RNA: TPP riboswitch aptamer (THI element)
RNA sequence: ACACGUGACACGGGGUGCCCGCCAGGGCUGAGAUCACACCCGUCGAACCUGAUCUAGUUCGUACUAGCGAAGGGAUGUCGCGCCAUGACGCG
Numbered sequence: 001a002c003a004c005g006u007g008a009c010a011c012g013g014g015g016u017g018c019c020c021g022c023c024a025g026g027g028c029u030g031a032g033a034u035c036a037c038a039c040c041c042g043u044c045g046a047a048c049c050u051g052a053u054c055u056a057g058u059u060c061g062u063a064c065u066a067g068c069g070a071a072g073g074g075a076u077g078u079c080g081c082g083c084c085a086u087g088a089c090g091c092g
Stems, first nucleotide, its partner, number of pairs: 006080005011042004016036001017028004048073003054067004